[Rfam]
RNA sequence: AGUGAAGAUUGACCCCUCACCAAAGUUCUCUUGUGCUAGAGAGACACGGCUCACCCUUUUUGUCUUAGGGAAGUCGUUUGCAAAGGUCACAGCGUCGCCUGACUCGCCGCUGCCACCCCACCUAUACAUCCCCCCCCCCCUUUCCAU
Numbered sequence: 001a002g003u004g005a006a007g008a009u010u011g012a013c014c015c016c017u018c019a020c021c022a023a024a025g026u027u028c029u030c031u032u033g034u035g036c037u038a039g040a041g042a043g044a045c046a047c048g049g050c051u052c053a054c055c056c057u058u059u060u061u062g063u064c065u066u067a068g069g070g071a072a073g074u075c076g077u078u079u080g081c082a083a084a085g086g087u088c089a090c091a092g093c094g095u096c097g098c099c100u101g102a103c104u105c106g107c108c109g110c111u112g113c114c115a116c117c118c119c120a121c122c123u124a125u126a127c128a129u130c131c132c133c134c135c136c137c138c139c140c141u142u143u144c145c146a147u
Stems, first nucleotide, its partner, number of pairs: 002020004007016001027044006046077005054070004085117003090112005097107002

This 147-nucleotide sequence from Luteovirus kerbihordei belongs to the Rfam family "Barley yellow dwarf virus 5'UTR". The literature on the family includes a 2001 paper in Mol Cell by Guo et al., "Base-pairing between untranslated regions facilitates translation of uncapped, nonpolyadenylated viral RNA". Pairs were carried over by alignment from the consensus structure, which is taken from published work. The organism belongs to Luteovirus kerbihordei, within Viruses. Rfam links the family to the GO terms positive regulation of viral translation and translation initiation factor activity.